[Rfam]
RNA: tRNA
RNA sequence: GGCGGCGUAGCUCAGUUGGCCAGAGCAUUCGGUUCAUACCCGACAGGUCGUAGGUUCAAGUCCCACCGCCGCUA
Numbered sequence: 001g002g003c004g005g006c007g008u009a010g011c012u013c014a015g016u017u018g019g020c021c022a023g024a025g026c027a028u029u030c031g032g033u034u035c036a037u038a039c040c041c042g043a044c045a046g047g048u049c050g051u052a053g054g055u056u057c058a059a060g061u062c063c064c065a066c067c068g069c070c071g072c073u074a
Stems, first nucleotide, its partner, number of pairs: 001073007010026004029043004050066002053063002
Dot-bracket structure: (((((((..((((.........))))..((((.......))))......((.((.......)).))))))))).